About this RNA:
Shown here is a 232-nucleotide part of an RNA from Mariniphaga anaerophila, a member of the family "Bacterial large subunit ribosomal RNA". The source organism's lineage runs through Bacteria, Pseudomonadati, Bacteroidia, Prolixibacteraceae and Mariniphaga. Pairs were carried over by alignment from the consensus structure, which is taken from published work.

[Rfam]
RNA sequence: GAGUUAGUCGUCACUAGCGAGGCUAAGUCCUUCAGGGACGUACCCGAAGCGAAAGCGAGUCUGAAUAGGGCGUUGAGUUAGUGGCGCUAGACGCGAAACCUUGUGAUCUACCCAUGGCCAGGUUGAAGUUUUGGUAACACAAAAUGGAGGACCGAACCAGGAAGCGUUGAAAAGCUUUUGGAUGAGCUGUGGGUAGGGGUGAAAGGCCAAUCAAACUGGGAAAUAGCUCGUA
Number, nucleotide and partner (000 for none) at each position: 001g000002a000003g000004u000005u089006a088007g087008u000009c086010g085011u084012c083013a082014c081015u080016a079017g078018c077019g000020a000021g045022g044023c000024u042025a000026a000027g039028u038029c037030c000031u000032u000033c000034a000035g000036g000037g029038a028039c027040g000041u000042a024043c000044c022045c021046g000047a000048a000049g056050c055051g000052a000053a000054a000055g050056c049057g000058a000059g071060u070061c069062u068063g000064a000065a000066u000067a000068g062069g061070g060071c059072g000073u000074u000075g000076a000077g018078u017079u016080a015081g014082u013083g012084g011085c010086g009087c007088u006089a005090g000091a000092c230093g229094c000095g227096a000097a000098a000099c220100c219101u218102u000103g216104u215105g000106a000107u000108c196109u195110a194111c193112c192113c191114a190115u189116g188117g187118c186119c184120a000121g153122g152123u151124u150125g000126a000127a000128g145129u144130u143131u142132u141133g140134g000135u000136a000137a000138c000139a000140c133141a132142a131143a130144a129145u128146g000147g000148a000149g000150g124151a123152c122153c121154g000155a000156a000157c181158c180159a179160g000161g178162a177163a176164g175165c174166g000167u000168u000169g000170a000171a000172a000173a000174g165175c164176u163177u162178u161179u159180g158181g157182a000183u000184g119185a000186g118187c117188u116189g115190u114191g113192g112193g111194u110195a109196g108197g000198g208199g207200u206201g000202a000203a000204a000205g000206g200207c199208c198209a000210a000211u000212c000213a000214a000215a104216c103217u000218g101219g100220g099221a000222a000223a000224u000225a000226g000227c095228u000229c093230g092231u000232a000